[Rfam]
RNA sequence: GAGCGUACGGUGGAUGCCUUGGCACCAGGAGCCGAUGAAGGACGUAGGAGGCUGCGAUAAGCCUCGGGGAGCUGUCAACCGAGCUGAGAUCCGAGGAUGUCCGAAUGGGGAAACCCAGCCACAGUGAUGUGUGGUUACCCGCGCCUGAAUAUAUAGGGCGUGUGGAGGGAACGUGGGGAAGUGAAACAUCUCAGUACCCACAGGAAGAGAAAACAACAUGUGAUUCCGUGAGUAGUGGCGAGCGAAAGCGGAAGAGGCUAAACCAUGGGUGUGUGAUAGCCGGCGGGCGUUGCAUUCGUGGGGUUGUGGGAUCCGUCUUGUCAAUUCUGCCGGAUUGGCCGACAGUGAGAAAUCAUCGUGUUAGUCGAAGUGGUCUGGAACGGCCUGUCGUAGAGGGUGAGAGUCCCGUAGACGAAAACAUGGUGACUGUCGUGACGGACACCCGAGUAGCAGCGGGCCCGUGAAAUCUGCUGUGAAUCUGUCGGGACCACCCGAUAAGCCUGAAUACUCCCUGGUGACCGAUAGCGGACUAGUACCGUGAGGGAAAGGUGAAAAGUACCCCGGGAGGGGAGUGAAAUAGUACCUGAAACCGUGCGCUUA
Numbered sequence: 001g002a003g004c005g006u007a008c009g010g011u012g013g014a015u016g017c018c019u020u021g022g023c024a025c026c027a028g029g030a031g032c033c034g035a036u037g038a039a040g041g042a043c044g045u046a047g048g049a050g051g052c053u054g055c056g057a058u059a060a061g062c063c064u065c066g067g068g069g070a071g072c073u074g075u076c077a078a079c080c081g082a083g084c085u086g087a088g089a090u091c092c093g094a095g096g097a098u099g100u101c102c103g104a105a106u107g108g109g110g111a112a113a114c115c116c117a118g119c120c121a122c123a124g125u126g127a128u129g130u131g132u133g134g135u136u137a138c139c140c141g142c143g144c145c146u147g148a149a150u151a152u153a154u155a156g157g158g159c160g161u162g163u164g165g166a167g168g169g170a171a172c173g174u175g176g177g178g179a180a181g182u183g184a185a186a187c188a189u190c191u192c193a194g195u196a197c198c199c200a201c202a203g204g205a206a207g208a209g210a211a212a213a214c215a216a217c218a219u220g221u222g223a224u225u226c227c228g229u230g231a232g233u234a235g236u237g238g239c240g241a242g243c244g245a246a247a248g249c250g251g252a253a254g255a256g257g258c259u260a261a262a263c264c265a266u267g268g269g270u271g272u273g274u275g276a277u278a279g280c281c282g283g284c285g286g287g288c289g290u291u292g293c294a295u296u297c298g299u300g301g302g303g304u305u306g307u308g309g310g311a312u313c314c315g316u317c318u319u320g321u322c323a324a325u326u327c328u329g330c331c332g333g334a335u336u337g338g339c340c341g342a343c344a345g346u347g348a349g350a351a352a353u354c355a356u357c358g359u360g361u362u363a364g365u366c367g368a369a370g371u372g373g374u375c376u377g378g379a380a381c382g383g384c385c386u387g388u389c390g391u392a393g394a395g396g397g398u399g400a401g402a403g404u405c406c407c408g409u410a411g412a413c414g415a416a417a418a419c420a421u422g423g424u425g426a427c428u429g430u431c432g433u434g435a436c437g438g439a440c441a442c443c444c445g446a447g448u449a450g451c452a453g454c455g456g457g458c459c460c461g462u463g464a465a466a467u468c469u470g471c472u473g474u475g476a477a478u479c480u481g482u483c484g485g486g487a488c489c490a491c492c493c494g495a496u497a498a499g500c501c502u503g504a505a506u507a508c509u510c511c512c513u514g515g516u517g518a519c520c521g522a523u524a525g526c527g528g529a530c531u532a533g534u535a536c537c538g539u540g541a542g543g544g545a546a547a548g549g550u551g552a553a554a555a556g557u558a559c560c561c562c563g564g565g566a567g568g569g570g571a572g573u574g575a576a577a578u579a580g581u582a583c584c585u586g587a588a589a590c591c592g593u594g595c596g597c598u599u600a
Base pairs, nucleotide, nucleotide: 001599002598003597004596005595006594007593008592009591010590016584017549018548021520022519023517024516025515026514027513028512029511030509031508032168033167040102041101042100043056044055045054062096063095064094065093066092067091068090071084072083073082107116108115109114117136118135119134120133121132122131123130138165139164140162141161142160143159144158145157146156172203173201174200175199176198177197183190184189213221214220224505225252226251227250228249229248235243236242255502256501257500258499263301264300265299266298267297268296269295270294271293272292273291308444309443310442313438314437315436316435317434351428353426354425355424356423357422358421359420360419361418362417364413365412366411370386372385373384374383375382389393395407396406397405450474451473452472453471454470455469456468457467481496482495483494484493485492536543537542559570560569561568562567

Rfam assigns this 600-nucleotide part of an RNA from Rhodococcus (subgen. Prescottella) equi to the family "Bacterial large subunit ribosomal RNA".